[Rfam]
RNA sequence: UAAAUUUUUCGAUAAAUCAUUCGUAUAAUCUUGAUAAUAUGGUUCAAGAGUAUCUACCAAGGCACCAAAAAUCCUUGACUAUGAGUGAAUCACGGGAAAGU
Dot-bracket structure: .................((((((((...((((((.........))))))........(((((.(.......))))))..))))))))..............